Annotation
Shown here is a 78-nucleotide RNA sequence from Astyanax mexicanus, a member of the family "mir-1 microRNA precursor family". On this family, see Lee and Ambros, Science 2001: "An extensive class of small RNAs in Caenorhabditis elegans". The family has 137 seed sequences and 4,474 matches in Rfam 15.1. The base pairs follow the family's consensus structure, which was predicted with RNAalifold. This family represents the microRNA (miRNA) mir-1 family. miRNAs are transcribed as ~70nt precursors (modelled here) and subsequently processed by the Dicer enzyme to give a ~22nt product. In this case the mature sequence comes from the 3' arm of the precursor. The extents of the hairpin precursors are not generally known and are estimated based on hairpin prediction.
RNA sequence: CAAUGUGCACCUCAACUCUUUUGUUUCCAUAUAUAUACAUAUAUAUAUAUGGAAACAAAAGAGUUGAGGUGCACAUUG
Numbered sequence: 001c002a003a004u005g006u007g008c009a010c011c012u013c014a015a016c017u018c019u020u021u022u023g024u025u026u027c028c029a030u031a032u033a034u035a036u037a038c039a040u041a042u043a044u045a046u047a048u049a050u051g052g053a054a055a056c057a058a059a060a061g062a063g064u065u066g067a068g069g070u071g072c073a074c075a076u077u078g
Stems, first nucleotide, its partner, number of pairs: 007072019027052005